This 152-nucleotide RNA sequence from Helicobacter suis belongs to the Rfam family "Bacterial antisense RNA HPnc0260".

[Rfam]
RNA sequence: AUCAGAAGAGUUUUUAGUGUUUUUAAGGGCAUGUGCUGUUGCUUUUUAAGAGAUUUUUUAGGGCUUUGAGAGAGUAUAAGAUUUUGGUGUAUUUCUUAGCUUAAUUUAUUUAAUGGUGGCCACGACUGGAUUUGAACCAGCGACCCCUACCA
Numbered sequence: 001a002u003c004a005g006a007a008g009a010g011u012u013u014u015u016a017g018u019g020u021u022u023u024u025a026a027g028g029g030c031a032u033g034u035g036c037u038g039u040u041g042c043u044u045u046u047u048a049a050g051a052g053a054u055u056u057u058u059u060a061g062g063g064c065u066u067u068g069a070g071a072g073a074g075u076a077u078a079a080g081a082u083u084u085u086g087g088u089g090u091a092u093u094u095c096u097u098a099g100c101u102u103a104a105u106u107u108a109u110u111u112a113a114u115g116g117u118g119g120c121c122a123c124g125a126c127u128g129g130a131u132u133u134g135a136a137c138c139a140g141c142g143a144c145c146c147c148u149a150c151c152a
Base pairs, nucleotide, nucleotide: 023048025046029042030041031040066080067079114149115148116147118145119144123142124141126140127139128138129137

The match comes from Rfam's covariance-model search (70 bits). On this family, see Sharma et al., Nature 2010: "The primary transcriptome of the major human pathogen Helicobacter pylori".